[Rfam]
RNA sequence: AGAGCAUCUGUAAUGUUCUUCCUCUAUUCAUCCUUGCACUUAGAGCUUACCUAAGAAAUCAUUGGGGAUGAUAUUUGGAGAUGCUC
Numbered sequence: 001a002g003a004g005c006a007u008c009u010g011u012a013a014u015g016u017u018c019u020u021c022c023u024c025u026a027u028u029c030a031u032c033c034u035u036g037c038a039c040u041u042a043g044a045g046c047u048u049a050c051c052u053a054a055g056a057a058a059u060c061a062u063u064g065g066g067g068a069u070g071a072u073a074u075u076u077g078g079a080g081a082u083g084c085u086c
Stems, first nucleotide, its partner, number of pairs: 002086007
The family of this 86-nucleotide RNA from Hordeum vulgare is "Small nucleolar RNA snoR26".
A reference for the family is Brown et al. (2001), "Multiple snoRNA gene clusters from Arabidopsis", RNA.
Pairs were carried over by alignment from the consensus structure, which was predicted with WAR.
Rfam links the family to the GO terms RNA processing and nucleolus.
Taxonomically the source falls in Hordeum vulgare (Eukaryota, Viridiplantae, Streptophytina, Spermatophyta).